The family of this 34-nucleotide RNA sequence from Chitinophaga agri is "DUF805b RNA". The match comes from Rfam's covariance-model search (37 bits).
[Rfam]
RNA sequence: AGGGCGAAUCCGAAAAGCCUGAACAGAGUAGGGU
Numbered sequence: 001a002g003g004g005c006g007a008a009u010c011c012g013a014a015a016a017g018c019c020u021g022a023a024c025a026g027a028g029u030a031g032g033g034u
Base pairs, nucleotide, nucleotide: 002020003019004018005017010032011031
Lineage of the source: Bacteria > Pseudomonadati > Bacteroidota > Chitinophagia > Chitinophaga.